[Rfam]
RNA sequence: CCCCUUUUCUUUUUCGAAAUCGGGCCUAUAUGCGGGGGUGCCGGUUUCGACCGGCUAUGGUGAUAAAUUGCGGCGUGCAAUAGAUGCAGCGGACCCGGGGGCGGUACCCGGCGGCUCCACCAUCACUUUUUCCAGCUUUGUCUGGAAACUCCGUUGUCGCGGGGGUGUUGAUGGGGCCGAACUAGGAUCGACGUGUGUUGAAAAGCGCUGUUUUUACCCGGGCUGAGUAACCCGUAUCAAGGCUCAAAUCUCAUAAGUGCCAACGACAACGAAGCACUUGCUCUGGCUGCGUAAUUCUAGGCCUUAACGGGCUGAAGUUACAAACCUAGAACACGGUUGAACCCACCGGGUAACAGAAGGGAAUUCG
Number, nucleotide and partner (000 for none) at each position: 001c000002c000003c000004c000005u000006u000007u000008u000009c000010u000011u000012u000013u000014u000015c000016g000017a000018a000019a000020u000021c000022g000023g000024g000025c000026c000027u000028a000029u000030a000031u000032g000033c000034g000035g000036g000037g000038g000039u000040g055041c054042c053043g052044g051045u000046u000047u000048c000049g000050a000051c044052c043053g042054g041055c040056u000057a000058u000059g218060g217061u216062g215063a214064u000065a000066a000067a000068u000069u000070g211071c210072g209073g208074c207075g206076u205077g000078c000079a000080a000081u000082a000083g000084a000085u197086g196087c195088a000089g194090c193091g192092g000093a000094c000095c111096c110097g109098g108099g107100g000101g000102c000103g000104g000105u000106a000107c099108c098109c097110g096111g095112c179113g178114g177115c176116u175117c174118c173119a000120c000121c000122a000123u000124c000125a000126c000127u000128u000129u000130u000131u000132c000133c000134a000135g000136c000137u000138u000139u000140g000141u000142c000143u000144g000145g000146a000147a000148a000149c000150u000151c000152c000153g000154u000155u000156g000157u000158c000159g000160c000161g000162g000163g000164g000165g000166u000167g000168u000169u000170g000171a000172u000173g118174g117175g116176g115177c114178c113179g112180a000181a000182c000183u000184a000185g000186g000187a000188u000189c000190g000191a000192c091193g090194u089195g087196u086197g085198u000199u000200g000201a000202a000203a000204a000205g076206c075207g074208c073209u072210g071211u070212u000213u000214u063215u062216a061217c060218c059219c234220g233221g232222g231223c000224u246225g245226a244227g000228u000229a000230a000231c222232c221233c220234g219235u000236a000237u000238c000239a000240a000241g000242g000243c000244u226245c225246a224247a000248a000249u000250c000251u000252c000253a000254u000255a000256a000257g000258u000259g000260c000261c000262a000263a000264c000265g000266a000267c000268a000269a000270c000271g000272a000273a000274g000275c000276a000277c000278u000279u000280g000281c000282u000283c000284u000285g000286g000287c000288u000289g000290c000291g000292u000293a000294a000295u000296u000297c000298u000299a000300g000301g000302c000303c000304u000305u000306a000307a000308c000309g000310g000311g000312c000313u000314g000315a000316a000317g000318u000319u000320a000321c000322a000323a000324a000325c000326c000327u000328a000329g000330a000331a000332c000333a000334c348335g347336g346337u345338u000339g364340a000341a000342c361343c360344c359345a337346c336347c335348g334349g000350g000351u000352a000353a000354c000355a000356g000357a000358a000359g344360g343361g342362a000363a000364u339365u000366c000367g000